Rfam assigns this 75-nucleotide RNA sequence from Amycolatopsis mediterranei to the family "ASpks TB sRNA".
RNA sequence: CUUCACCGAGCCCAGCCAGAGCGGCUUCUCCGGGUCCCGGCCCUUGCCGUAGGUGGCCAGCAACGCCUGCGCUUC
Numbered sequence: 001c002u003u004c005a006c007c008g009a010g011c012c013c014a015g016c017c018a019g020a021g022c023g024g025c026u027u028c029u030c031c032g033g034g035u036c037c038c039g040g041c042c043c044u045u046g047c048c049g050u051a052g053g054u055g056g057c058c059a060g061c062a063a064c065g066c067c068u069g070c071g072c073u074u075c
Stems, first nucleotide, its partner, number of pairs: 014026004031071002038065002043060002047056003
Rfam classes the family as an antisense RNA.